This 79-nucleotide RNA sequence from Muraenolepis orangiensis belongs to the Rfam family "Mammalian CPEB3 ribozyme". Taxonomically the source falls in Muraenolepis (Eukaryota, Metazoa, Chordata, Clupeocephala). The family has 14 seed sequences and 5,706 matches in Rfam 15.1. Gene Ontology term of the family: RNA nuclease activity.
RNA sequence: UUUGUCUCGAGGGGAUCAUGGCAGAAGCGUUCAAGUCGUGAUCCAUUCCAGGCUUUAAACAAAGCCUGCGAAUUCUACC
Numbered sequence: 001u002u003u004g005u006c007u008c009g010a011g012g013g014g015a016u017c018a019u020g021g022c023a024g025a026a027g028c029g030u031u032c033a034a035g036u037c038g039u040g041a042u043c044c045a046u047u048c049c050a051g052g053c054u055u056u057a058a059a060c061a062a063a064g065c066c067u068g069c070g071a072a073u074u075c076u077a078c079c
Stems, first nucleotide, its partner, number of pairs: 013044005020079002023076004027039003049068007